Shown here is an 81-nucleotide RNA from Paenibacillus nanensis, a member of the family "c-di-GMP-I-GGC riboswitch aptamer".
RNA sequence: UACGAUAAUGGCAAACCUAUCGAAAGGUAGGGACGCAAAGCUAUUGGGCCUUCUAACAAGAUGGCAGCCAGGCCGCCGAAG
Numbered sequence: 001u002a003c004g005a006u007a008a009u010g011g012c013a014a015a016c017c018u019a020u021c022g023a024a025a026g027g028u029a030g031g032g033a034c035g036c037a038a039a040g041c042u043a044u045u046g047g048g049c050c051u052u053c054u055a056a057c058a059a060g061a062u063g064g065c066a067g068c069c070a071g072g073c074c075g076c077c078g079a080a081g
Stems, first nucleotide, its partner, number of pairs: 001081001003078002011036002016031006034067001040073003045070003048065003
On this family, see Kulshina et al., Nat Struct Mol Biol 2009: "Recognition of the bacterial second messenger cyclic diguanylate by its cognate riboswitch".
The family's consensus secondary structure is taken from published work.
A search with the family's covariance model found it, with a score of 69 bits.